[Rfam]
RNA sequence: CCCUUCGAAAUUUCCCUCAGGAUAGCUGGCGCUCUUGAAAAAUAGACUUGGGUUCCGAAACCGUUUUGUCCGAUAAAGCGAAUGAUUAGAGAUCUUAGGGCCAAAACGAUCUCAAUCUAUUCUCAAACUUUAAAUGGGUAAGAAGCCCGGCUCGCUGGCGUGGAGCCGGGCGUGGAAUGCGAGUGCCUAGUGGGCCACUUUUGGUAAGCAGAACUGGCGCUGCGGGAUGAACCGAACGCCGGGUUAAGGCGCCCGAUGCCGACGCUCAUCAGACCCCAGAAAAGGUGUUGGUUGAUGUACACAACAGGACGGUGGCCAUGGAAGUCGGAAUCUGCUUAGGAGUGUACAACAACUCACCUGCCGAAUCAACUAGCCCUGAAAAUGGAUGGCGCUGCAGCGUCCGGCCCUUACCUGGCCAUUGCUGGCAGUAGGGACGCCAGCGAGAGGGAAGGGAGCUGGAGAAGGAGUACAAGGCUGCUUAUCUGGGGGUGGGGGAAGAUGGGAGUCGGGUGGCGGCUGCCUCUUAACCCCCUCCUCCGCACUGCUGAAGCUAAGCAGCGACGAGUAGGAGGGC
Numbered sequence: 001c002c003c004u005u006c007g008a009a010a011u012u013u014c015c016c017u018c019a020g021g022a023u024a025g026c027u028g029g030c031g032c033u034c035u036u037g038a039a040a041a042a043u044a045g046a047c048u049u050g051g052g053u054u055c056c057g058a059a060a061c062c063g064u065u066u067u068g069u070c071c072g073a074u075a076a077a078g079c080g081a082a083u084g085a086u087u088a089g090a091g092a093u094c095u096u097a098g099g100g101c102c103a104a105a106a107c108g109a110u111c112u113c114a115a116u117c118u119a120u121u122c123u124c125a126a127a128c129u130u131u132a133a134a135u136g137g138g139u140a141a142g143a144a145g146c147c148c149g150g151c152u153c154g155c156u157g158g159c160g161u162g163g164a165g166c167c168g169g170g171c172g173u174g175g176a177a178u179g180c181g182a183g184u185g186c187c188u189a190g191u192g193g194g195c196c197a198c199u200u201u202u203g204g205u206a207a208g209c210a211g212a213a214c215u216g217g218c219g220c221u222g223c224g225g226g227a228u229g230a231a232c233c234g235a236a237c238g239c240c241g242g243g244u245u246a247a248g249g250c251g252c253c254c255g256a257u258g259c260c261g262a263c264g265c266u267c268a269u270c271a272g273a274c275c276c277c278a279g280a281a282a283a284g285g286u287g288u289u290g291g292u293u294g295a296u297g298u299a300c301a302c303a304a305c306a307g308g309a310c311g312g313u314g315g316c317c318a319u320g321g322a323a324g325u326c327g328g329a330a331u332c333u334g335c336u337u338a339g340g341a342g343u344g345u346a347c348a349a350c351a352a353c354u355c356a357c358c359u360g361c362c363g364a365a366u367c368a369a370c371u372a373g374c375c376c377u378g379a380a381a382a383u384g385g386a387u388g389g390c391g392c393u394g395c396a397g398c399g400u401c402c403g404g405c406c407c408u409u410a411c412c413u414g415g416c417c418a419u420u421g422c423u424g425g426c427a428g429u430a431g432g433g434a435c436g437c438c439a440g441c442g443a444g445a446g447g448g449a450a451g452g453g454a455g456c457u458g459g460a461g462a463a464g465g466a467g468u469a470c471a472a473g474g475c476u477g478c479u480u481a482u483c484u485g486g487g488g489g490u491g492g493g494g495g496a497a498g499a500u501g502g503g504a505g506u507c508g509g510g511u512g513g514c515g516g517c518u519g520c521c522u523c524u525u526a527a528c529c530c531c532c533u534c535c536u537c538c539g540c541a542c543u544g545c546u547g548a549a550g551c552u553a554a555g556c557a558g559c560g561a562c563g564a565g566u567a568g569g570a571g572g573g574c
Stems, first nucleotide, its partner, number of pairs: 001573006011024001013022003028187006064143008076131001077129002083125003088120001090118003095115002098112003102108001145171009194218004199213005223234003238416005244410001248406003257403001263399003283377003287374010305360004310334003316328002335339001340355001344353002417563001419561006

Notes:
Shown here is a 574-nucleotide part of an RNA from Chrysochloris asiatica, a member of the family "Eukaryotic large subunit ribosomal RNA". A search with the family's covariance model found it, with a score of 1656 bits. Gene Ontology terms of the family: ribosome and structural constituent of ribosome.